Rfam assigns this 110-nucleotide RNA from Halobacillus sp. BAB-2008 to the family "TPP riboswitch aptamer (THI element)". From the family's description: Vitamin B(1) in its active form thiamin pyrophosphate (TPP) is an essential coenzyme that is synthesised by coupling of pyrimidine and thiazole moieties in bacteria. The organism belongs to Halobacillus, within Bacteria.
[Rfam]
RNA sequence: CACAUGCACUAGGGGUGCCUUUAAGAAAAGGCUGAGAUCGAAGUGAUACUUCGGGACUCUUUGAACCUGAACUGGCUCAAACCAGCGGAGGAAAGUGGCGGCUAUAUCAA
Numbered sequence: 001c002a003c004a005u006g007c008a009c010u011a012g013g014g015g016u017g018c019c020u021u022u023a024a025g026a027a028a029a030g031g032c033u034g035a036g037a038u039c040g041a042a043g044u045g046a047u048a049c050u051u052c053g054g055g056a057c058u059c060u061u062u063g064a065a066c067c068u069g070a071a072c073u074g075g076c077u078c079a080a081a082c083c084a085g086c087g088g089a090g091g092a093a094a095g096u097g098g099c100g101g102c103u104a105u106a107u108c109a110a
Stems, first nucleotide, its partner, number of pairs: 007097004011060004016054001017032005039053005066091003072085004